[Rfam]
RNA sequence: UUUAACACCGUUCUCCGAGCCAUAAUACCUAAAGAAUUAUGCUAUGGUAAUAUGGCCGUUAGGGUUAACCGGGAAACCGGUUAGCCUCCCCUGUUGGAAAGGAGAACAUUACCCACCUGU
Numbered sequence: 001u002u003u004a005a006c007a008c009c010g011u012u013c014u015c016c017g018a019g020c021c022a023u024a025a026u027a028c029c030u031a032a033a034g035a036a037u038u039a040u041g042c043u044a045u046g047g048u049a050a051u052a053u054g055g056c057c058g059u060u061a062g063g064g065u066u067a068a069c070c071g072g073g074a075a076a077c078c079g080g081u082u083a084g085c086c087u088c089c090c091c092u093g094u095u096g097g098a099a100a101g102g103a104g105a106a107c108a109u110u111a112c113c114c115a116c117c118u119g120u
Base pairs, nucleotide, nucleotide: 011106012105013104014103015102016101019056020055021054022053023052024051026049027048028047029046033043034042036040062087063086064085065084066083067082068081069080070079071078072077088097089096